[Rfam]
RNA sequence: AAGCUGUUCCGUUAGGUGAGGCUCCUAUAUGAACAUAAGCUGCUACUCAGAAACAUCGAGAGAUGCCAAUUGAGUGAACUGAAAUUGCCUACAAAGGCUUUUUCUAACGUAGCUGAAUUUCAUUCUACGUCAUAUAGUGCUAAAACUAAACGAUUGGAACGCGCA
Numbered sequence: 001a002a003g004c005u006g007u008u009c010c011g012u013u014a015g016g017u018g019a020g021g022c023u024c025c026u027a028u029a030u031g032a033a034c035a036u037a038a039g040c041u042g043c044u045a046c047u048c049a050g051a052a053a054c055a056u057c058g059a060g061a062g063a064u065g066c067c068a069a070u071u072g073a074g075u076g077a078a079c080u081g082a083a084a085u086u087g088c089c090u091a092c093a094a095a096g097g098c099u100u101u102u103u104c105u106a107a108c109g110u111a112g113c114u115g116a117a118u119u120u121c122a123u124u125c126u127a128c129g130u131c132a133u134a135u136a137g138u139g140c141u142a143a144a145a146c147u148a149a150a151c152g153a154u155u156g157g158a159a160c161g162c163g164c165a
Stems, first nucleotide, its partner, number of pairs: 005161006011151002013095001015147003020141003025137008039113005045075005054065004081104004087098003115125003
Dot-bracket structure: ....(((((((([.(((..(((..((((((((......(((((.(((((....((((....)))).....))))).....((((..(((.....])))..))))....))))).(((.....)))....)))))))).)))...)))..))....))))))....
RNA: M-box riboswitch aptamer (ykoK leader)